The record is a 97-nucleotide sequence from Secundilactobacillus similis, which matches "azaaromatic riboswitch aptamer (yjdF RNA)" in Rfam. The base pairs follow the family's consensus structure, which is taken from published work. Taxonomically the source falls in Secundilactobacillus similis (Bacteria, Bacillati, Bacilli, Lactobacillaceae).
RNA sequence: GAAAUAGAAAGUAAAAACACAGUUCGGUUGGUAGUCCGAACAUAGCGAAGCUAUCAGUAACCUGCCUCCUUGGUUGUCCAUCUUUCUUAAUUAAUUU
Numbered sequence: 001g002a003a004a005u006a007g008a009a010a011g012u013a014a015a016a017a018c019a020c021a022g023u024u025c026g027g028u029u030g031g032u033a034g035u036c037c038g039a040a041c042a043u044a045g046c047g048a049a050g051c052u053a054u055c056a057g058u059a060a061c062c063u064g065c066c067u068c069c070u071u072g073g074u075u076g077u078c079c080a081u082c083u084u085u086c087u088u089a090a091u092u093a094a095u096u097u
Base pairs, nucleotide, nucleotide: 006087007086008085009084010083011082022041023040024039025038026037027036042054043053044052045051046050064074065073066072